[Rfam]
RNA sequence: AGGCGACGCGCGGGAGAGUUCUCGGGGAACCGGGACGCCGAAGGAGCAACCGCCCCGGAAUCUCUCAGGCACAAAGGACCGCGCGGAGCCA
Numbered sequence: 001a002g003g004c005g006a007c008g009c010g011c012g013g014g015a016g017a018g019u020u021c022u023c024g025g026g027g028a029a030c031c032g033g034g035a036c037g038c039c040g041a042a043g044g045a046g047c048a049a050c051c052g053c054c055c056c057g058g059a060a061u062c063u064c065u066c067a068g069g070c071a072c073a074a075a076g077g078a079c080c081g082c083g084c085g086g087a088g089c090c091a
Stems, first nucleotide, its partner, number of pairs: 007085007020035004037070003040066002044064003050058002
RNA: Glycine riboswitch aptamer